Shown here is a 427-nucleotide RNA from Edaphobacter acidisoli, a member of the family "Bacterial RNase P class A". Its family is annotated with ribonuclease P activity, tRNA processing and dimeric ribonuclease P complex in the Gene Ontology. It is annotated as a ribozyme.

[Rfam]
RNA sequence: GCAGACGGCUGGACGAUCGCUGCUGCCCGGCAACGGGCAGGGGAGGAAAGUCCGAACUCCGCAGGGCAGUGUGCCGGAUAACGUCCGGGACGGCCGCUUCAAGGCGGCUGGACGGCCAGUGCAACAGAAAGGAUACCGCCUAAGCUGUUCAUUCAGCUUGGGUAAGGGUGAAAUGGUGCGGUAAGAGCGCACCGCGCGUCCAGUAAUGGCCGCGGCAUGGUAAACCCCACACGGAGCAAGACCAAAUAGGCAGGGACUCUACCGCUGCUCUCCAGGCGGCAGACCGCGUACCGGCCCGGUGCGCCAAGGCGGAGAGGCUCGAAAGAGCGCCAAAACCUGCGGGUAGGUUGCUGGAACUGCCCAGUAAUGAGCAGUCUAGAGGAAUGAUCGUCUAAAACAGAAUUCGGCUUACGGGCCGUCUGCAAAC
Numbered sequence: 001g002c003a004g005a006c007g008g009c010u011g012g013a014c015g016a017u018c019g020c021u022g023c024u025g026c027c028c029g030g031c032a033a034c035g036g037g038c039a040g041g042g043g044a045g046g047a048a049a050g051u052c053c054g055a056a057c058u059c060c061g062c063a064g065g066g067c068a069g070u071g072u073g074c075c076g077g078a079u080a081a082c083g084u085c086c087g088g089g090a091c092g093g094c095c096g097c098u099u100c101a102a103g104g105c106g107g108c109u110g111g112a113c114g115g116c117c118a119g120u121g122c123a124a125c126a127g128a129a130a131g132g133a134u135a136c137c138g139c140c141u142a143a144g145c146u147g148u149u150c151a152u153u154c155a156g157c158u159u160g161g162g163u164a165a166g167g168g169u170g171a172a173a174u175g176g177u178g179c180g181g182u183a184a185g186a187g188c189g190c191a192c193c194g195c196g197c198g199u200c201c202a203g204u205a206a207u208g209g210c211c212g213c214g215g216c217a218u219g220g221u222a223a224a225c226c227c228c229a230c231a232c233g234g235a236g237c238a239a240g241a242c243c244a245a246a247u248a249g250g251c252a253g254g255g256a257c258u259c260u261a262c263c264g265c266u267g268c269u270c271u272c273c274a275g276g277c278g279g280c281a282g283a284c285c286g287c288g289u290a291c292c293g294g295c296c297c298g299g300u301g302c303g304c305c306a307a308g309g310c311g312g313a314g315a316g317g318c319u320c321g322a323a324a325g326a327g328c329g330c331c332a333a334a335a336c337c338u339g340c341g342g343g344u345a346g347g348u349u350g351c352u353g354g355a356a357c358u359g360c361c362c363a364g365u366a367a368u369g370a371g372c373a374g375u376c377u378a379g380a381g382g383a384a385u386g387a388u389c390g391u392c393u394a395a396a397a398c399a400g401a402a403u404u405c406g407g408c409u410u411a412c413g414g415g416c417c418g419u420c421u422g423c424a425a426a427c
Stems, first nucleotide, its partner, number of pairs: 001423010011412001012392007020043002023040006048410003052407005057236004069232005074088005089113001091110008114227002119225002121221002136167002138163009175193006194216001195214004200209003240349004250340005356375005362369002
It scores 290 bits against the family's covariance model. Lineage of the source: Bacteria > Acidobacteriota > Terriglobia > Acidobacteriaceae > Edaphobacter.